Notes:
This 77-nucleotide RNA from Abrus precatorius belongs to the Rfam family "Small nucleolar RNA Z155". The literature on the family includes a 2003 paper in Nucleic Acids Res by Chen et al., "The high diversity of snoRNAs in plants: identification and comparative study of 120 snoRNA genes from Oryza sativa". NCBI's taxonomy places the organism under Eukaryota, Embryophyta, eudicotyledons, Papilionoideae, Abrus. The family's RNA type in Rfam is C/D-box small nucleolar RNA. The base pairs follow the family's consensus structure. It scores 56 bits against the family's covariance model.
RNA sequence: CAUUGAAGUGAUGAUAUUUUCAUCUGAAUUUUAUAAAUGUUGAGUUAAUAAAUCAGACUACAAUUAUCUGAUCAAUG
Numbered sequence: 001c002a003u004u005g006a007a008g009u010g011a012u013g014a015u016a017u018u019u020u021c022a023u024c025u026g027a028a029u030u031u032u033a034u035a036a037a038u039g040u041u042g043a044g045u046u047a048a049u050a051a052a053u054c055a056g057a058c059u060a061c062a063a064u065u066a067u068c069u070g071a072u073c074a075a076u077g
Base pairs, nucleotide, nucleotide: 001077002076003075004074005073006072